[Rfam]
RNA sequence: UAAAAAGGACCGAGGUCGGCUAAAUUCGCGAUUCGUAUCACAACGCCGACAUGAGCACUUCCUGUGCG
Numbered sequence: 001u002a003a004a005a006a007g008g009a010c011c012g013a014g015g016u017c018g019g020c021u022a023a024a025u026u027c028g029c030g031a032u033u034c035g036u037a038u039c040a041c042a043a044c045g046c047c048g049a050c051a052u053g054a055g056c057a058c059u060u061c062c063u064g065u066g067c068g
Stems, first nucleotide, its partner, number of pairs: 015050006028041001030039003055067004
This 68-nucleotide sequence from Oceanobacillus indicireducens belongs to the Rfam family "Bacillaceae-1 RNA". It is annotated as a small RNA. Rfam 15.1 lists 5,721 matches to the family in 247 species.